[Rfam]
RNA sequence: UCCCAGUGAUCGCUGAAUCCUGAUCAAGGAGCGGGGGAACCAAUUGUGGAGAGGAUGGAUCUCCUCCACAUGGGGUGAAUCUCAUGCCACCACCGGCAUGAGUAGGGUAACUCUCAAGAUCCGAAUCCGACAGCUAACCUCGUAAGCGUGAUGAGAGAGGGGGU
Numbered sequence: 001u002c003c004c005a006g007u008g009a010u011c012g013c014u015g016a017a018u019c020c021u022g023a024u025c026a027a028g029g030a031g032c033g034g035g036g037g038a039a040c041c042a043a044u045u046g047u048g049g050a051g052a053g054g055a056u057g058g059a060u061c062u063c064c065u066c067c068a069c070a071u072g073g074g075g076u077g078a079a080u081c082u083c084a085u086g087c088c089a090c091c092a093c094c095g096g097c098a099u100g101a102g103u104a105g106g107g108u109a110a111c112u113c114u115c116a117a118g119a120u121c122c123g124a125a126u127c128c129g130a131c132a133g134c135u136a137a138c139c140u141c142g143u144a145a146g147c148g149u150g151a152u153g154a155g156a157g158a159g160g161g162g163g164u
Stems, first nucleotide, its partner, number of pairs: 011148004018030003031143006041072002073128003081102007105122004
Description
Rfam assigns this 164-nucleotide RNA from Lihuaxuella thermophila to the family "c-di-AMP riboswitch aptamer (ydaO/yuaA leader)". A search with the family's covariance model found it, with a score of 101 bits. The organism belongs to Lihuaxuella, within Bacteria.